[Rfam]
RNA sequence: AGCGGAGUAGAGCAGUUUGGUAGCUCACGAGGCUCAUAACCUUGAGGUCACGGGUUCGAUUCCCGUCUCCGCAC
Number, nucleotide and partner (000 for none) at each position: 001a000002g072003c071004g070005g069006a068007g067008u000009a000010g026011a025012g024013c023014a000015g000016u000017u000018u000019g000020g000021u000022a000023g013024c012025u011026c010027a000028c044029g043030a042031g041032g040033c000034u000035c000036a000037u000038a000039a000040c032041c031042u030043u029044g028045a000046g000047g000048u000049c000050a066051c065052g064053g063054g062055u000056u000057c000058g000059a000060u000061u000062c054063c053064c052065g051066u050067c007068u006069c005070c004071g003072c002073a000074c000